[Rfam]
RNA sequence: GUUUUUUGUUGCCUUGGAGAAACGGCCGAAACGCUUACCGAGACUAUCCAAGUAAAAUACGUCUCUCAUACCAACUCUGGAGGGUAGAGUUGGAAUACUAUACCCA
Numbered sequence: 001g002u003u004u005u006u007u008g009u010u011g012c013c014u015u016g017g018a019g020a021a022a023c024g025g026c027c028g029a030a031a032c033g034c035u036u037a038c039c040g041a042g043a044c045u046a047u048c049c050a051a052g053u054a055a056a057a058u059a060c061g062u063c064u065c066u067c068a069u070a071c072c073a074a075c076u077c078u079g080g081a082g083g084g085u086a087g088a089g090u091u092g093g094a095a096u097a098c099u100a101u102a103c104c105c106a
Stems, first nucleotide, its partner, number of pairs: 014051005040065005071093007
PhotoRC-II RNA: a 106-nucleotide RNA sequence. The family's RNA type in Rfam is cis-regulatory element. It is one of the family's seed sequences.